[Rfam]
RNA: sok antitoxin (CssrC)
RNA sequence: GGGUGCCUGAGACUUUCUGUUUUCAGGCUAACCGGGAAUCAGAAAGACGAAGGCCCCGACCGAUAUUUCUAUCAACUGUACUGCACCCAUUUUGUUGGACGAUGAAAUGGAAUAGCCCCUAAUAUGUCAAAGCCAAAAUACCCUUUUGAAAAG
Numbered sequence: 001g002g003g004u005g006c007c008u009g010a011g012a013c014u015u016u017c018u019g020u021u022u023u024c025a026g027g028c029u030a031a032c033c034g035g036g037a038a039u040c041a042g043a044a045a046g047a048c049g050a051a052g053g054c055c056c057c058g059a060c061c062g063a064u065a066u067u068u069c070u071a072u073c074a075a076c077u078g079u080a081c082u083g084c085a086c087c088c089a090u091u092u093u094g095u096u097g098g099a100c101g102a103u104g105a106a107a108u109g110g111a112a113u114a115g116c117c118c119c120u121a122a123u124a125u126g127u128c129a130a131a132g133c134c135a136a137a138a139u140a141c142c143c144u145u146u147u148g149a150a151a152a153g
Stems, first nucleotide, its partner, number of pairs: 001057003005054004011048001013046007021038002024036001027033001058077001062073004078118001081115002087110008122145001126141002